The family of this 158-nucleotide sequence from Bifidobacterium subtile is "M-box riboswitch aptamer (ykoK leader)". Rfam links the family to the GO terms response to magnesium ion and regulation of gene expression. Rfam's curators write: M-box riboswitch, also know as ykoK leader is described as a metaloregulatory RNA that sense divalent metals and function as a genetic control element of genes related to divalent metal transport in bacteria. It was first reported upstream of the B.subtilis ykoK gene and genes with related functions in other bacteria.

RNA sequence: AGGUUGAAUCGGUAGGUAAGGCUACCGCAGGGAUAUGGAUCGCUGCCGCAAACCAGUGGAGACACUGCGCGCAGGUCAGCAGUUCUUGUCGAAUCAAGGCAUGAACUAAUGCGAUGCCACCGCCCUGCGAAGCUGAAGCUCAGACGAUGACGAGGAAG
Dot-bracket structure: ....(...(((.[.(((..(((...(((((((......(((((..(.((.....((((....))))....)).).......((((..(((......])))..))))....))))).......)))))))..)))...)))....)...))...)....